[Rfam]
RNA sequence: GAGAGUGAGAUUAAAUGACACACACAUGUCGACACCUGUUCCAGGGUGCCUCCACGGAGGUUUGGAACAGGGAUAUGUGGAGGAUUAAC
Numbered sequence: 001g002a003g004a005g006u007g008a009g010a011u012u013a014a015a016u017g018a019c020a021c022a023c024a025c026a027u028g029u030c031g032a033c034a035c036c037u038g039u040u041c042c043a044g045g046g047u048g049c050c051u052c053c054a055c056g057g058a059g060g061u062u063u064g065g066a067a068c069a070g071g072g073a074u075a076u077g078u079g080g081a082g083g084a085u086u087a088a089c
Stems, first nucleotide, its partner, number of pairs: 023079008035071009048061005

A member of the RNA family "t44 RNA" from Seongchinamella unica, 89 nucleotides long. The match comes from Rfam's covariance-model search (67 bits). Rfam describes the family as follows. This family consists of a number of bacterial RNA genes of between 135 and 170 bases in length. The t44 gene has been identified in several species of enteric bacteria but homologs have also been identified in Pseudomonas and Coxiella species. The t44 gene is found between the map and rpsB genes in all species in the full alignment apart from Shigella flexneri. The function of this RNA is unknown. The family's RNA type in Rfam is small RNA. On this family, see Tjaden et al., Nucleic Acids Res 2002: "Transcriptome analysis of Escherichia coli using high-density oligonucleotide probe arrays". Pairs were carried over by alignment from the consensus structure, which was predicted with LocARNA. Taxonomically the source falls in Seongchinamella (Bacteria, Gammaproteobacteria, Cellvibrionales, Halieaceae).